[Rfam]
RNA sequence: GUAAGCAACCCACUGCUUAAAGCAGUGGGCUUCAGCUAAACCCAGUUUAGUCGAAGCCAAGCGAACCCUCCUAUCAGCUUUAAACAAGCUGGGUUUACAUUAAGUGUUAAAGUUCUUACCUUGGGAUACGAAGCUAGUUCCAAGCUCUAAAACCAAGUAAUUAAACAGACGUAAUGGUUUAAAGUCAGUGUUACUUGGAAAGUACCGGGUGUAAACAAAGUCAAAGCUCACAUUAC
Numbered sequence: 001g002u003a004a005g006c007a008a009c010c011c012a013c014u015g016c017u018u019a020a021a022g023c024a025g026u027g028g029g030c031u032u033c034a035g036c037u038a039a040a041c042c043c044a045g046u047u048u049a050g051u052c053g054a055a056g057c058c059a060a061g062c063g064a065a066c067c068c069u070c071c072u073a074u075c076a077g078c079u080u081u082a083a084a085c086a087a088g089c090u091g092g093g094u095u096u097a098c099a100u101u102a103a104g105u106g107u108u109a110a111a112g113u114u115c116u117u118a119c120c121u122u123g124g125g126a127u128a129c130g131a132a133g134c135u136a137g138u139u140c141c142a143a144g145c146u147c148u149a150a151a152a153c154c155a156a157g158u159a160a161u162u163a164a165a166c167a168g169a170c171g172u173a174a175u176g177g178u179u180u181a182a183a184g185u186c187a188g189u190g191u192u193a194c195u196u197g198g199a200a201a202g203u204a205c206c207g208g209g210u211g212u213a214a215a216c217a218a219a220g221u222c223a224a225a226g227c228u229c230a231c232a233u234u235a236c
Stems, first nucleotide, its partner, number of pairs: 001066002005062002010029002012026002015023002030056004071220002076090005093216009113151002120144008132228004153198009165189002168186003172182001174180001

A member of the RNA family "HNH endonuclease-associated RNA and ORF (HEARO) RNA" from Scytonema hofmannii, 236 nucleotides long. Pairs were carried over by alignment from the consensus structure, which is taken from published work. NCBI's taxonomy places the organism under Bacteria, Bacillati, Cyanobacteriota, Scytonema, Scytonema hofmannii. A reference for the family is Weinberg et al. (2009), "Exceptional structured noncoding RNAs revealed by bacterial metagenome analysis", Nature.